Histidine operon leader: a 177-nucleotide sequence. It scores 53 bits against the family's covariance model.

[Rfam]
RNA sequence: AAAUUUUAAAAACCCCCCCCCCCCCGGGGGGGGGGGGGGGAAAAAAAAGGGGGGGGUUUUUUUGGGGGGGAAAAUUUUUUUCCCCCCCCCAAAAAAAAAUUUUUAAAAAACCCCCCCCGGGGGGGGGAAAAGGGGCCCCCUUUUUGGGGGGGCCCCCCCCCCCGGGGGGUUUUUUUU
Numbered sequence: 001a002a003a004u005u006u007u008a009a010a011a012a013c014c015c016c017c018c019c020c021c022c023c024c025c026g027g028g029g030g031g032g033g034g035g036g037g038g039g040g041a042a043a044a045a046a047a048a049g050g051g052g053g054g055g056g057u058u059u060u061u062u063u064g065g066g067g068g069g070g071a072a073a074a075u076u077u078u079u080u081u082c083c084c085c086c087c088c089c090c091a092a093a094a095a096a097a098a099a100u101u102u103u104u105a106a107a108a109a110a111c112c113c114c115c116c117c118c119g120g121g122g123g124g125g126g127g128a129a130a131a132g133g134g135g136c137c138c139c140c141u142u143u144u145u146g147g148g149g150g151g152g153c154c155c156c157c158c159c160c161c162c163c164g165g166g167g168g169g170u171u172u173u174u175u176u177u
Stems, first nucleotide, its partner, number of pairs: 008063003011058004017053005064088008106174008116166012